[Rfam]
RNA sequence: ACUCAACAAGAAUUACUUUAAAAAGGGUGAGUUUAAGUUGUAAAAGCGCGCCGUCUUAGAACGGAUUCUUGACCAGCUUGUUAGCCCUAAACCUGUUUAUACAGAGUUU
Numbered sequence: 001a002c003u004c005a006a007c008a009a010g011a012a013u014u015a016c017u018u019u020a021a022a023a024a025g026g027g028u029g030a031g032u033u034u035a036a037g038u039u040g041u042a043a044a045a046g047c048g049c050g051c052c053g054u055c056u057u058a059g060a061a062c063g064g065a066u067u068c069u070u071g072a073c074c075a076g077c078u079u080g081u082u083a084g085c086c087c088u089a090a091a092c093c094u095g096u097u098u099a100u101a102c103a104g105a106g107u108u109u
Stems, first nucleotide, its partner, number of pairs: 024088005035079005044070003051064004